[Rfam]
RNA sequence: UUUGUGUCUGUAACUUGAGGGAUGAGAACCCGAGAAGAGGGUUUGAGCCGAGCGAAGCGAGACAACGUGGGAGCUGCGACCACGGCCCCGAAGGGGUGAAAUAAUCCCUCCCUGACCGCCA
Numbered sequence: 001u002u003u004g005u006g007u008c009u010g011u012a013a014c015u016u017g018a019g020g021g022a023u024g025a026g027a028a029c030c031c032g033a034g035a036a037g038a039g040g041g042u043u044u045g046a047g048c049c050g051a052g053c054g055a056a057g058c059g060a061g062a063c064a065a066c067g068u069g070g071g072a073g074c075u076g077c078g079a080c081c082a083c084g085g086c087c088c089c090g091a092a093g094g095g096g097u098g099a100a101a102u103a104a105u106c107c108c109u110c111c112c113u114g115a116c117c118g119c120c121a
Stems, first nucleotide, its partner, number of pairs: 017110005023104001042092003045088001049059002066084005
RNA: RtT RNA